[Rfam]
RNA: malK-I RNA
Nucleotides: 179
Stems, first nucleotide, its partner, number of pairs: 009039010065079004069169001071167005080104008089096002107132004112128004135161007144153003
Number, partner (000 for none) and nucleotide at each position: 001000c002000u003000g004000a005000c006000u007000g008000c009039g010038u011037a012036u013035g014034g015033g016032g017031c018030u019000c020000u021000c022000c023000a024000u025000u026000u027000u028000u029000a030018a031017g032016u033015u034014c035013c036012a037011u038010a039009c040000a041000g042000c043000u044000u045000u046000a047000a048000u049000a050000a051000g052000g053000a054000g055000g056000a057000a058000g059000u060000a061000u062000u063000c064000a065079u066078c067077c068076c069169c070000g071167g072166g073165c074164u075163c076068g077067g078066g079065g080104u081103g082102c083101g084100g085099c086098a087097g088000u089096g090095u091000g092000g093000a094000g095090a096089c097087c098086u099085g100084u101083c102082g103081u104080a105000a106000u107132g108131c109130a110129g111000a112128c113127u114126g115125u116000c117000c118000c119000c120000u121000g122000c123000g124000g125115g126114c127113a128112g129110c130109u131108g132107u133000g134000a135161g136160c137159c138158u139157g140156u141155c142000g143000a144153u145152g146151c147000g148000g149000a150000u151146g152145c153144a154000g155141g156140g157139c158138a159137g160136g161135c162000g163075g164074a165073g166072c167071c168000g169069g170000a171000a172000g173000c174000a175000u176000g177000g178000c179000a